[Rfam]
Shown here is a 74-nucleotide sequence from Hamiltosporidium magnivora, a member of the family "tRNA". The organism belongs to Hamiltosporidium, within Eukaryota. It is annotated as a transfer RNA. A search with the family's covariance model found it, with a score of 64 bits. Transfer RNA (tRNA) molecules are approximately 80 nucleotides in length.

RNA sequence: GCCUCACUAGCUCAGUCGGUUAGAGCAUCCGGCUUUUAACCGGGGGGUCGAGGGUUCGAGCCCCUCGUGGGGUA
Numbered sequence: 001g002c003c004u005c006a007c008u009a010g011c012u013c014a015g016u017c018g019g020u021u022a023g024a025g026c027a028u029c030c031g032g033c034u035u036u037u038a039a040c041c042g043g044g045g046g047g048u049c050g051a052g053g054g055u056u057c058g059a060g061c062c063c064c065u066c067g068u069g070g071g072g073u074a
Stems, first nucleotide, its partner, number of pairs: 001073007010026004028044005050066005